[Rfam]
This 132-nucleotide RNA from Priestia taiwanensis belongs to the Rfam family "FMN riboswitch aptamer (RFN element)".
RNA sequence: AUCUAUCUUCAGGGCAGGGUGUAAUUCCCGACCGGCGGUGAGAGGAGCAAGACUUCUUAAGCCCGUGAGCCGAAAGGCUGAUUUGGUGUGAAUCCAAAGCCGACAGUAUAGUCUGGAUGGGAGAAGAUGGAG
Numbered sequence: 001a002u003c004u005a006u007c008u009u010c011a012g013g014g015c016a017g018g019g020u021g022u023a024a025u026u027c028c029c030g031a032c033c034g035g036c037g038g039u040g041a042g043a044g045g046a047g048c049a050a051g052a053c054u055u056c057u058u059a060a061g062c063c064c065g066u067g068a069g070c071c072g073a074a075a076g077g078c079u080g081a082u083u084u085g086g087u088g089u090g091a092a093u094c095c096a097a098a099g100c101c102g103a104c105a106g107u108a109u110a111g112u113c114u115g116g117a118u119g120g121g122a123g124a125a126g127a128u129g130g131a132g
Base pairs, nucleotide, nucleotide: 003130004129005128006127007126008125009124010123017029018028019027031112032111033102034101035066036065037064038063061100062099069078070077071076082098083097084096085095086094104115105114106113
The RFN element is a highly conserved domain that is found frequently in the 5'-untranslated regions of prokaryotic mRNAs that encode for flavin mononucleotide (FMN) biosynthesis and transport proteins. This element is a metabolite-dependent riboswitch that directly binds FMN in the absence of proteins. In Bacillus subtilis, the riboswitch most likely controls gene expression by causing premature transcription termination within the 5' untranslated region of the ribDEAHT operon and precluding access to the ribosome-binding site of ypaA mRNA.The FMN riboswitch structure, reported in present an FMN-bound six-stem junction, adopts a butterfly-like scaffold, stapled together by opposingly directed but nearly identically folded peripheral domains. Pairs were carried over by alignment from the consensus structure, which is taken from published work.